Shown here is a 163-nucleotide RNA sequence from Comamonas sp. JNW, a member of the family "ZMP/ZTP riboswitch aptamer (pfl RNA motif)". NCBI's taxonomy places the organism under Bacteria, Pseudomonadota, Burkholderiales, Comamonadaceae, Comamonas.
RNA sequence: AGCCGGGUACGCGACUGGCGAUAGACAUCUGUAUGACCGGAUUGUUGACGUGGAAUGCAGGCCCGGCCUGCAGCAACCACCGGGGAGCGUACCGUGCAGUGCCAGGGCGAGCGCAUCGCCCCCCGCACCCGCCACGUGUUAGCCGUGCGCCUGGGCAGCCCCU
Numbered sequence: 001a002g003c004c005g006g007g008u009a010c011g012c013g014a015c016u017g018g019c020g021a022u023a024g025a026c027a028u029c030u031g032u033a034u035g036a037c038c039g040g041a042u043u044g045u046u047g048a049c050g051u052g053g054a055a056u057g058c059a060g061g062c063c064c065g066g067c068c069u070g071c072a073g074c075a076a077c078c079a080c081c082g083g084g085g086a087g088c089g090u091a092c093c094g095u096g097c098a099g100u101g102c103c104a105g106g107g108c109g110a111g112c113g114c115a116u117c118g119c120c121c122c123c124c125g126c127a128c129c130c131g132c133c134a135c136g137u138g139u140u141a142g143c144c145g146u147g148c149g150c151c152u153g154g155g156c157a158g159c160c161c162c163u
Stems, first nucleotide, its partner, number of pairs: 003096001006093007015084002017151004050080004140158001142156003